The family of this 102-nucleotide RNA from Aotus nancymaae is "Y RNA". By type it is a non-coding RNA gene. Taxonomically the source falls in Aotus (Eukaryota, Theria, Primates, Simiiformes). Y RNAs are components of the Ro ribonucleoprotein particle (Ro RNP), in association with Ro60 and La proteins. A search with the family's covariance model found it, with a score of 74 bits.

RNA sequence: GGAUGGUCCAAGUGCAGUGGUGUUUACAACUAACUGAUCACAACCAGUUCUAGAUUUCUUUGUACUCUCUCCACUCCCACUGCUUCACUUGACUAGCCUUAA
Numbered sequence: 001g002g003a004u005g006g007u008c009c010a011a012g013u014g015c016a017g018u019g020g021u022g023u024u025u026a027c028a029a030c031u032a033a034c035u036g037a038u039c040a041c042a043a044c045c046a047g048u049u050c051u052a053g054a055u056u057u058c059u060u061u062g063u064a065c066u067c068u069c070u071c072c073a074c075u076c077c078c079a080c081u082g083c084u085u086c087a088c089u090u091g092a093c094u095a096g097c098c099u100u101a102a
Base pairs, nucleotide, nucleotide: 001098002097004095005094006093007092008091010090011089014086016081017080018079019078020077022076029063030062032060033059